[Rfam]
RNA sequence: CAGUGUUUCAGCUCUUUGAACUGUGUCUUGCAAGGUUUUUUCUAUGUAGAAAACAAGUCUCCA
Numbered sequence: 001c002a003g004u005g006u007u008u009c010a011g012c013u014c015u016u017u018g019a020a021c022u023g024u025g026u027c028u029u030g031c032a033a034g035g036u037u038u039u040u041u042c043u044a045u046g047u048a049g050a051a052a053a054c055a056a057g058u059c060u061c062c063a
Base pairs, nucleotide, nucleotide: 033060034059035058036056037055038053039052040051041050042049043048

This 63-nucleotide RNA from Strix occidentalis belongs to the Rfam family "U7 small nuclear RNA". The family has 49 seed sequences and 10,439 matches in Rfam 15.1. The family's consensus secondary structure was predicted with PFOLD.